This 49-nucleotide RNA from Enterococcus haemoperoxidus belongs to the Rfam family "uup RNA". The source organism's lineage runs through Bacteria, Bacillati, Bacillota, Enterococcus and Enterococcus haemoperoxidus. The base pairs follow the family's consensus structure, which is taken from published work.

RNA sequence: AAAGAAGUAGCUCCCGACAAAUGAAUGUGAUGAAGCAUUGUUGUGGAGC
Numbered sequence: 001a002a003a004g005a006a007g008u009a010g011c012u013c014c015c016g017a018c019a020a021a022u023g024a025a026u027g028u029g030a031u032g033a034a035g036c037a038u039u040g041u042u043g044u045g046g047a048g049c
Stems, first nucleotide, its partner, number of pairs: 011048004017041003